RNA sequence: CGCAGGGGAGCCCGGUGCCACCGGGCUGAGAGGGCGGGUGGAGACCCGCCGACCCUUGGAACCUGAUCCGGGUCAUACCGGCGGAGGGAGCG
Numbered sequence: 001c002g003c004a005g006g007g008g009a010g011c012c013c014g015g016u017g018c019c020a021c022c023g024g025g026c027u028g029a030g031a032g033g034g035c036g037g038g039u040g041g042a043g044a045c046c047c048g049c050c051g052a053c054c055c056u057u058g059g060a061a062c063c064u065g066a067u068c069c070g071g072g073u074c075a076u077a078c079c080g081g082c083g084g085a086g087g088g089a090g091c092g
Stems, first nucleotide, its partner, number of pairs: 001092003004056004010026005033050007062087003068081004
The family of this 92-nucleotide RNA sequence from bacterium HR12 is "TPP riboswitch aptamer (THI element)".
It scores 64 bits against the family's covariance model.